Source information:
This 114-nucleotide sequence from Trifolium medium belongs to the Rfam family "MIR2593 microRNA precursor family". NCBI's taxonomy places the organism under Eukaryota, Streptophytina, Pentapetalae, Papilionoideae, Trifolium. Its family is annotated with RISC complex and miRNA-mediated post-transcriptional gene silencing in the Gene Ontology. A search with the family's covariance model found it, with a score of 96 bits.
RNA sequence: UUAUAAGAGACAAGUCACUUGUUAGAUUCAUUGAAUAAUUAAUGUAUCCGGUCUAUAUUUAGACCAAAUACAUCAAUUAUUCAAUGAAUCUAAAAAGUGACUUGUCUCUUAUAA
Number, nucleotide and partner (000 for none) at each position: 001u000002u113003a112004u111005a110006a109007g108008a000009g106010a105011c104012a103013a102014g000015u100016c099017a098018c097019u096020u095021g000022u093023u092024a091025g090026a000027u088028u087029c086030a085031u084032u083033g082034a081035a080036u079037a078038a077039u076040u075041a000042a073043u072044g071045u000046a000047u000048c000049c000050g065051g064052u063053c000054u000055a000056u000057a000058u000059u000060u000061a000062g000063a052064c051065c050066a000067a000068a000069u000070a000071c044072a043073u042074c000075a040076a039077u038078u037079a036080u035081u034082c033083a032084a031085u030086g029087a028088a027089u000090c025091u024092a023093a022094a000095a020096a019097g018098u017099g016100a015101c000102u013103u012104g011105u010106c009107u000108c007109u006110u005111a004112u003113a002114a000